[Rfam]
Source information: This 99-nucleotide RNA from Sutcliffiella cohnii belongs to the Rfam family "SAM riboswitch aptamer (S box leader)". Rfam describes the family as follows. The SAM riboswitch is found upstream of a number of genes which code for proteins involved in methionine or cysteine biosynthesis in Gram-positive bacteria. The base pairs follow the family's consensus structure, which is taken from published work. Rfam links the family to the GO term regulation of gene expression.

RNA sequence: UCUUUAUCAAGAGUGGUGGAGGGACUGGCCCUUUGAAACCCGGCAACCUUUAUAAAAAGGUGCUAAAUCCAGCAAGGUAUAUACCUUGGAAGAUAAGGA
Dot-bracket structure: ((((((((....(.(((...(((.[[[[)))......))))((((.((((....))..))))))...(]]]]((((((....))))))..)))))))))